[Rfam]
RNA sequence: GGGUGUCGCGACUGCGGGUGCAGUCAGGCAGGUUUUUUGUGUUGGUCGGGCCGCCACA
Numbered sequence: 001g002g003g004u005g006u007c008g009c010g011a012c013u014g015c016g017g018g019u020g021c022a023g024u025c026a027g028g029c030a031g032g033u034u035u036u037u038u039g040u041g042u043u044g045g046u047c048g049g050g051c052c053g054c055c056a057c058a
Base pairs, nucleotide, nucleotide: 005029006028007027010024012023013022014021015020040058041057042056044055045054046053